[Rfam]
RNA sequence: CCUACUUGCACGGGGUGCUUUUGCUGAAAAGCGAGGCUGAGAUGAUACCCGAUAAACCUGAUACGGAUAAUACCGGCGUAGGGAUGCAUGGCCAGGAUUGU
Numbered sequence: 001c002c003u004a005c006u007u008g009c010a011c012g013g014g015g016u017g018c019u020u021u022u023g024c025u026g027a028a029a030a031g032c033g034a035g036g037c038u039g040a041g042a043u044g045a046u047a048c049c050c051g052a053u054a055a056a057c058c059u060g061a062u063a064c065g066g067a068u069a070a071u072a073c074c075g076g077c078g079u080a081g082g083g084a085u086g087c088a089u090g091g092c093c094a095g096g097a098u099u100g101u
Stems, first nucleotide, its partner, number of pairs: 007088004011051004016045001017037005057082004064075003
Source information:
The family of this 101-nucleotide RNA sequence from Pedobacter sp. Leaf176 is "TPP riboswitch aptamer (THI element)". Taxonomically the source falls in Pedobacter (Bacteria, Pseudomonadati, Bacteroidota, Sphingobacteriia).